[Rfam]
RNA: Lysine riboswitch aptamer
Organism: Pseudoalteromonas phenolica
RNA sequence: AUAAACAGAAGAGGCGCGAAACUUAGGUAGCUGGUUUGAGGUGACGAAUACCGAUGACAGUCAGUGAGGGAAGUGUUCGCCGAGAAGAAUAUCAGUACGUCGCUGUUAUUUUUCGGUUUACGAGGCUGAAUCCUCGGAACUGUCACCGAUUUAUGGUGGAGAGCUUCUGGCAAU
Numbered sequence: 001a002u003a004a005a006c007a008g009a010a011g012a013g014g015c016g017c018g019a020a021a022c023u024u025a026g027g028u029a030g031c032u033g034g035u036u037u038g039a040g041g042u043g044a045c046g047a048a049u050a051c052c053g054a055u056g057a058c059a060g061u062c063a064g065u066g067a068g069g070g071a072a073g074u075g076u077u078c079g080c081c082g083a084g085a086a087g088a089a090u091a092u093c094a095g096u097a098c099g100u101c102g103c104u105g106u107u108a109u110u111u112u113u114c115g116g117u118u119u120a121c122g123a124g125g126c127u128g129a130a131u132c133c134u135c136g137g138a139a140c141u142g143u144c145a146c147c148g149a150u151u152u153a154u155g156g157u158g159g160a161g162a163g164c165u166u167c168u169g170g171c172a173a174u
Stems, first nucleotide, its partner, number of pairs: 006169006016080005021074004030065007084114008093105003115141004121136005143159005